Shown here is a 140-nucleotide RNA sequence from Rubritalea squalenifaciens, a member of the family "Y RNA-like".
RNA sequence: ACAUCGAAUGCCUGUGGAACUACAUCCCUUCUGGAGGACGAGGUCGUGGGUUCGAAUCCCACCCGGGCUCGCCAAUAAUAUGGCCCGGUAGCUCAGUUCGGUAGAGCGCGUAAACGUUUCACAUCUUUUGUCGAUGUAUC
Numbered sequence: 001a002c003a004u005c006g007a008a009u010g011c012c013u014g015u016g017g018a019a020c021u022a023c024a025u026c027c028c029u030u031c032u033g034g035a036g037g038a039c040g041a042g043g044u045c046g047u048g049g050g051u052u053c054g055a056a057u058c059c060c061a062c063c064c065g066g067g068c069u070c071g072c073c074a075a076u077a078a079u080a081u082g083g084c085c086c087g088g089u090a091g092c093u094c095a096g097u098u099c100g101g102u103a104g105a106g107c108g109c110g111u112a113a114a115c116g117u118u119u120c121a122c123a124u125c126u127u128u129u130g131u132c133g134a135u136g137u138a139u140c
Base pairs, nucleotide, nucleotide: 002136003135004134005133006132007131013123014122015121016120017119018118019117039110040109046062047061048060049059050058053101063088064087065086066085067084068083091107092106093105094104
In Deinococcus radiodurans Rsr is tethered via Y RNA to the exoribonuclease PNPase and channels single-stranded RNA into the PNPase cavity. Rsr and Y RNA enhance degradation of structured RNAs by PNPase. Rfam classes the family as a small RNA. NCBI's taxonomy places the organism under Bacteria, Verrucomicrobiota, Verrucomicrobiia, Rubritaleaceae, Rubritalea squalenifaciens. A search with the family's covariance model found it, with a score of 74 bits. Pairs were carried over by alignment from the consensus structure, which is taken from published work. The family has 6 seed sequences and 124 matches in Rfam 15.1.